[Rfam]
RNA sequence: GUCAGGUAUGGGGACAUGGUACCCAAGACCAUAGCUGGGAAGAUUUUUGGGUCUAUCUGUUCUCUAAGUGGUGUCUUGGUCAUCGCUCUGCCCGUCCCAGUGAUUGUCUCAAAC
Numbered sequence: 001g002u003c004a005g006g007u008a009u010g011g012g013g014a015c016a017u018g019g020u021a022c023c024c025a026a027g028a029c030c031a032u033a034g035c036u037g038g039g040a041a042g043a044u045u046u047u048u049g050g051g052u053c054u055a056u057c058u059g060u061u062c063u064c065u066a067a068g069u070g071g072u073g074u075c076u077u078g079g080u081c082a083u084c085g086c087u088c089u090g091c092c093c094g095u096c097c098c099a100g101u102g103a104u105u106g107u108c109u110c111a112a113a114c
Stems, first nucleotide, its partner, number of pairs: 001114002005110001008107004014101002018097002021095002037077004049063003